[Rfam]
RNA sequence: UGGUUUUGAUGACGAAGAGAGGGAGUACACUUGUCAGCAUCCAUGAAAAGGCCAUGGGUGUUUACGGGAGUGCUCCCUCUCUUUGUCAUUAAACU
Numbered sequence: 001u002g003g004u005u006u007u008g009a010u011g012a013c014g015a016a017g018a019g020a021g022g023g024a025g026u027a028c029a030c031u032u033g034u035c036a037g038c039a040u041c042c043a044u045g046a047a048a049a050g051g052c053c054a055u056g057g058g059u060g061u062u063u064a065c066g067g068g069a070g071u072g073c074u075c076c077c078u079c080u081c082u083u084u085g086u087c088a089u090u091a092a093a094c095u
Stems, first nucleotide, its partner, number of pairs: 010088005016082002020078002023075001025073004030068005

MIR535 microRNA precursor family: a 95-nucleotide sequence from Rosa chinensis. Rfam 15.1 lists 544 matches to the family in 108 species.